[Rfam]
RNA sequence: UGAAGUUAUAGCCCUUUUAGAAUUUGUUUAGCAGGUUUUCUGACCAAAGUCAGAAAACCUAA
Numbered sequence: 001u002g003a004a005g006u007u008a009u010a011g012c013c014c015u016u017u018u019a020g021a022a023u024u025u026g027u028u029u030a031g032c033a034g035g036u037u038u039u040c041u042g043a044c045c046a047a048a049g050u051c052a053g054a055a056a057a058c059c060u061a062a
Stems, first nucleotide, its partner, number of pairs: 034059011
Dot-bracket structure: .................................(((((((((((....)))))))))))...